[Rfam]
RNA sequence: AGAACCUUUAAAUCCAGUCCGGAGAGGCUGGCAAGGGCACGGAUGAUUUUAGAUAGGUGAAAACUGCCUAUGUGCUUCUUGUCCAGUUGCGGACAAGAAGCUUUUUUU
Numbered sequence: 001a002g003a004a005c006c007u008u009u010a011a012a013u014c015c016a017g018u019c020c021g022g023a024g025a026g027g028c029u030g031g032c033a034a035g036g037g038c039a040c041g042g043a044u045g046a047u048u049u050u051a052g053a054u055a056g057g058u059g060a061a062a063a064c065u066g067c068c069u070a071u072g073u074g075c076u077u078c079u080u081g082u083c084c085a086g087u088u089g090c091g092g093a094c095a096a097g098a099a100g101c102u103u104u105u106u107u108u
Base pairs, nucleotide, nucleotide: 005036006035007034008033014031015030016029017028018027019026041068042067045064047062048061049060050059051058072103074101075100076099077098078097079096080095081094082093083092084091
RNA: PyrR binding site
Organism: Paenactinomyces guangxiensis